This 129-nucleotide RNA from Ewingella americana belongs to the Rfam family "RtT RNA". Taxonomically the source falls in Ewingella americana (Bacteria, Pseudomonadati, Gammaproteobacteria, Yersiniaceae). This family represents a bacterial cis-regulatory element known as RtT RNA. The exact function of RtT is unknown although it is thought that it may be involved in changing the cellular response in relation to amino acid starvation.

Nucleotides: 129
Stems, first nucleotide, its partner, number of pairs: 015120007023112001034094002037092002044089004051061002068082006
Number, partner (000 for none) and nucleotide at each position: 001000u002000a003000g004000a005000a006000u007000a008000u009000c010000g011000c012000g013000c014000u015120g016119g017118g018117a019116a020115g021114g022000a023112u024000g025000g026000a027000g028000a029000a030000g031000c032000u033000u034094c035093g036000a037092u038091u039000g040000a041000a042000g043000g044089u045088u046087c047086g048000a049000g050000c051061c052060g053000a054000g055000c056000g057000a058000a059000g060052c061051g062000a063000g064000a065000c066000a067000g068082c069081g070080u071079u072078g073077c074000g075000c076000a077073g078072c079071a080070a081069c082068g083000a084000c085000c086047c087046g088045a089044a090000g091038g092037g093035c094034g095000a096000g097000g098000c099000c100000a101000g102000c103000g104000g105000c106000c107000g108000a109000g110000u111000a112023a113000u114021c115020c116019u117018u118017c119016c120015c121000c122000c123000a124000c125000c126000a127000c128000c129000a
Annotation: A search with the family's covariance model found it, with a score of 110 bits. The base pairs follow the family's consensus structure, which is taken from published work.